BsrF: a 99-nucleotide sequence from Bacillus subtilis. Taxonomically the source falls in Bacillus (Bacteria, Bacillati, Bacilli, Caryophanales).
RNA sequence: GAAUUGUGUAAGCCGAUGUACAUGCCUUUACGGCACACACGAAUGUGGCGUGUGGUGCAUCGCCUCAAUACGCAAAGACGUUUGCCUUAGGCAAACGUC
Numbered sequence: 001g002a003a004u005u006g007u008g009u010a011a012g013c014c015g016a017u018g019u020a021c022a023u024g025c026c027u028u029u030a031c032g033g034c035a036c037a038c039a040c041g042a043a044u045g046u047g048g049c050g051u052g053u054g055g056u057g058c059a060u061c062g063c064c065u066c067a068a069u070a071c072g073c074a075a076a077g078a079c080g081u082u083u084g085c086c087u088u089a090g091g092c093a094a095a096c097g098u099c
Stems, first nucleotide, its partner, number of pairs: 004068003008064001014062008024034002036054002039051003077099009
Dot-bracket structure: ...(((.(.....((((((((..((.......)).((.(((.......))).)))))))))).).)))........(((((((((.....)))))))))